[Rfam]
RNA sequence: CGGGGAUUAGAAAAGUAGCCUGUGGUGGGUGAAAUUACGGUUCGGAGAAGGAAUAAAGGAACGCAUGACCUUAUAGAUUUUCAAUCUAUUAAAUUACCUCACUCAUUCAGCUUACCGGACGCUUUUUGCAUGGCUGAGAGUGUAGUUGUAUCAGUUUCAUGGUAAGUUAGACGAGCUUCCAUUAAAACUACAAAAGACUUCCAGAAGCAGGGUGGGAUAAUACGAAGAGAUACGAAC
Numbered sequence: 001c002g003g004g005g006a007u008u009a010g011a012a013a014a015g016u017a018g019c020c021u022g023u024g025g026u027g028g029g030u031g032a033a034a035u036u037a038c039g040g041u042u043c044g045g046a047g048a049a050g051g052a053a054u055a056a057a058g059g060a061a062c063g064c065a066u067g068a069c070c071u072u073a074u075a076g077a078u079u080u081u082c083a084a085u086c087u088a089u090u091a092a093a094u095u096a097c098c099u100c101a102c103u104c105a106u107u108c109a110g111c112u113u114a115c116c117g118g119a120c121g122c123u124u125u126u127u128g129c130a131u132g133g134c135u136g137a138g139a140g141u142g143u144a145g146u147u148g149u150a151u152c153a154g155u156u157u158c159a160u161g162g163u164a165a166g167u168u169a170g171a172c173g174a175g176c177u178u179c180c181a182u183u184a185a186a187a188c189u190a191c192a193a194a195a196g197a198c199u200u201c202c203a204g205a206a207g208c209a210g211g212g213u214g215g216g217a218u219a220a221u222a223c224g225a226a227g228a229g230a231u232a233c234g235a236a237c
Base pairs, nucleotide, nucleotide: 004042005041007039019029020028073089074088075087076086077085078084098216099215100214101213102212103211104210106209107171108170110168112165113164114163115162116161121129122128132156133155134154135153136152137151175208176207177206178205179204182193183192